Background: Shown here is a 404-nucleotide sequence from Paenibacillus bovis, a member of the family "Bacterial RNase P class A". A search with the family's covariance model found it, with a score of 259 bits.
[Rfam]
RNA sequence: AAAGUUUAACAGACAAUCGCCGGUAGCCGAAAGGCUGCGGGAGGAAAGUCCGGGCUCCGUAGGGCAGGGUGCUGGAUAACAUCCAGUCAGUGCAAACUGAAGGAUAGUGCCACAGAAAUGGACCGCCGAUGGCUCGCAAGAGUACAGGCAAGGAUGGAACCGAGGUGUAAGAGACCCCGAGGAACACUGGUGACUUUGUUCCUGGUAAACCCCAUCUGGAGCAAGACCUAAAGAGAUACAGCUUUUUUUCGGAAAAGCAGCCUUAGCCCGAGGUGUAUCGAGGUUGGUCGCUGGAGCCAAAUAGUAAUGUUUGGCCUAGAUAGAUGAUUGUCACCAAAAGUGGGAGGGUAGUUCCCGAUCGAACCACAACUGGUACAGAACCCGGCUUAUGAGAAACUUUCCCA
Numbered sequence: 001a002a003a004g005u006u007u008a009a010c011a012g013a014c015a016a017u018c019g020c021c022g023g024u025a026g027c028c029g030a031a032a033g034g035c036u037g038c039g040g041g042a043g044g045a046a047a048g049u050c051c052g053g054g055c056u057c058c059g060u061a062g063g064g065c066a067g068g069g070u071g072c073u074g075g076a077u078a079a080c081a082u083c084c085a086g087u088c089a090g091u092g093c094a095a096a097c098u099g100a101a102g103g104a105u106a107g108u109g110c111c112a113c114a115g116a117a118a119u120g121g122a123c124c125g126c127c128g129a130u131g132g133c134u135c136g137c138a139a140g141a142g143u144a145c146a147g148g149c150a151a152g153g154a155u156g157g158a159a160c161c162g163a164g165g166u167g168u169a170a171g172a173g174a175c176c177c178c179g180a181g182g183a184a185c186a187c188u189g190g191u192g193a194c195u196u197u198g199u200u201c202c203u204g205g206u207a208a209a210c211c212c213c214a215u216c217u218g219g220a221g222c223a224a225g226a227c228c229u230a231a232a233g234a235g236a237u238a239c240a241g242c243u244u245u246u247u248u249u250c251g252g253a254a255a256a257g258c259a260g261c262c263u264u265a266g267c268c269c270g271a272g273g274u275g276u277a278u279c280g281a282g283g284u285u286g287g288u289c290g291c292u293g294g295a296g297c298c299a300a301a302u303a304g305u306a307a308u309g310u311u312u313g314g315c316c317u318a319g320a321u322a323g324a325u326g327a328u329u330g331u332c333a334c335c336a337a338a339a340g341u342g343g344g345a346g347g348g349u350a351g352u353u354c355c356c357g358a359u360c361g362a363a364c365c366a367c368a369a370c371u372g373g374u375a376c377a378g379a380a381c382c383c384g385g386c387u388u389a390u391g392a393g394a395a396a397c398u399u400u401c402c403c404a
Base pairs, nucleotide, nucleotide: 001400002399003398004397005396006395007394010391011390012332013331014330015329016328017327018326020041021040023038024037025036026035027034028033046388047387048386050385051384052383053382054381055221056220057219058218062269063268064267065266067217068216069215070214071213072086073085074084075083076082087101088099089098090097091096102212103211107210108209109206110205111204123153124152125149126148127147130146131145132143133142134141135140161179162178164176165175166174181202182201183200184199185198186197189194225289226288227287228286235279236278237277238276239275260274261273262272263271264270296315297314298313299312300311301310302309303308
Dot-bracket structure: (((((((..(((((((((.((.((((((....)))))).))....[[[.[[[[[((((...[[[[.((((((((((.....)))))(((((....)))).)((...(((((...........(((((..((((((....)))).)))))..)).......((.(((.......))).)).((((((..(....)..)))))).)))..)))))))))))))...((((......(((((....................(((((.]]]]))))))))))......))))......((((((((....))))))))..........)))))))................................................]]]]]]]].))..)))))))....